Notes
Plastid-rpl16 group II-D1 intron: a 47-nucleotide RNA sequence from Dendrobium nobile. The match comes from Rfam's covariance-model search (50 bits).
RNA sequence: UUGAGCUUUGGGUUAAUAAAAACUGAGGAGAUUGACUCAGAAACAAA
Numbered sequence: 001u002u003g004a005g006c007u008u009u010g011g012g013u014u015a016a017u018a019a020a021a022a023c024u025g026a027g028g029a030g031a032u033u034g035a036c037u038c039a040g041a042a043a044c045a046a047a
Stems, first nucleotide, its partner, number of pairs: 007041002010038008

Background: Lineage of the source: Eukaryota > Spermatophyta > Petrosaviidae > Epidendroideae > Dendrobium. Pairs were carried over by alignment from the consensus structure, which was predicted with LocARNA.